[Rfam]
RNA sequence: GGAAUAUAAGAAACCGUCUCUUAACUAAAAAAUUUUAAUUAAAAAAGUUAAGAGCCGACUCUUAAAUAUCUUAUUUAAGAGCCGGCUCUUAACUUUUUUAGUUAAAAAUUAAGAGACGGUUUCUCAUAUUCA
Numbered sequence: 001g002g003a004a005u006a007u008a009a010g011a012a013a014c015c016g017u018c019u020c021u022u023a024a025c026u027a028a029a030a031a032a033u034u035u036u037a038a039u040u041a042a043a044a045a046a047g048u049u050a051a052g053a054g055c056c057g058a059c060u061c062u063u064a065a066a067u068a069u070c071u072u073a074u075u076u077a078a079g080a081g082c083c084g085g086c087u088c089u090u091a092a093c094u095u096u097u098u099u100a101g102u103u104a105a106a107a108a109u110u111a112a113g114a115g116a117c118g119g120u121u122u123c124u125c126a127u128a129u130u131c132a
Stems, first nucleotide, its partner, number of pairs: 002131006009124016033107014048092007